[Rfam]
RNA sequence: CGCCCGGGCCGGAUCCCGUGGGGGGAAUCCGCACCGGGGAAACGGGAAGCGCCCCGCUCACCGAC
Dot-bracket structure: (((((.((.((((((((.....))).)))))..)).)))....(((.....))).......))..
RNA: Streptomyces RNA 2736
Organism: Streptomyces kanasensis